[Rfam]
RNA sequence: ACAAAACAGGCAAGGAGCUUAAAUUCUUGCCGUACUCGCGGUUAAAUCUUGGGAGGAUCAGAUCUUUGGCGCGCCCGUUCGCUGCCCCGUAACAGGUUAAGGAUCACGCGAUACUUUCAAACAAGGUCAUACGACCUUGUUUUUUUUU
Number, nucleotide and partner (000 for none) at each position: 001a000002c000003a148004a147005a146006a145007c000008a000009g000010g000011c029012a028013a027014g026015g025016a024017g000018c000019u000020u000021a000022a000023a000024u016025u015026c014027u013028u012029g011030c000031c000032g000033u000034a000035c000036u000037c110038g109039c108040g107041g000042u000043u000044a000045a000046a058047u057048c056049u055050u000051g000052g000053g000054a000055g049056g048057a047058u046059c000060a000061g105062a104063u103064c102065u101066u000067u000068g086069g085070c084071g082072c081073g080074c000075c000076c000077g000078u000079u000080c073081g072082c071083u000084g070085c069086c068087c096088c095089g000090u000091a000092a000093c000094a000095g088096g087097u000098u000099a000100a000101g065102g064103a063104u062105c061106a000107c040108g039109c038110g037111a000112u000113a000114c000115u000116u000117u000118c000119a000120a141121a140122c139123a138124a137125g136126g135127u134128c000129a000130u000131a000132c000133g000134a127135c126136c125137u124138u123139g122140u121141u120142u000143u000144u000145u006146u005147u004148u003